[Rfam]
RNA: SAM riboswitch aptamer (S box leader)
RNA sequence: UUCUUAUCGUGAGAGGUGGAGGGAAAGGCCCUGUGAAACCUCAGCAACCAGCCCGGAGAGGGUCAGGUGCUAAUUCCUGCAGAGUAUUCUGCAAAGAUAAGAA
Dot-bracket structure: ((((((((....(((((...(((..[[[)))......)))))((((.((.(((.......)))..))))))...(]]].((((....))))...)))))))))
Numbered sequence: 001u002u003c004u005u006a007u008c009g010u011g012a013g014a015g016g017u018g019g020a021g022g023g024a025a026a027g028g029c030c031c032u033g034u035g036a037a038a039c040c041u042c043a044g045c046a047a048c049c050a051g052c053c054c055g056g057a058g059a060g061g062g063u064c065a066g067g068u069g070c071u072a073a074u075u076c077c078u079g080c081a082g083a084g085u086a087u088u089c090u091g092c093a094a095a096g097a098u099a100a101g102a103a
Stems, first nucleotide, its partner, number of pairs: 001103008013042005021031003026078003043071004048067002051063003075095001080091004